Description
This 37-nucleotide RNA from Vineibacter terrae belongs to the Rfam family "CRISPR RNA direct repeat element".
RNA sequence: GCUCUCCGAGGCUGAAGAGCCUCGGCCUCAUUGAAGC
Numbered sequence: 001g002c003u004c005u006c007c008g009a010g011g012c013u014g015a016a017g018a019g020c021c022u023c024g025g026c027c028u029c030a031u032u033g034a035a036g037c
Stems, first nucleotide, its partner, number of pairs: 006025007
Pairs were carried over by alignment from the consensus structure, which was predicted with WAR. The match comes from Rfam's covariance-model search (35 bits).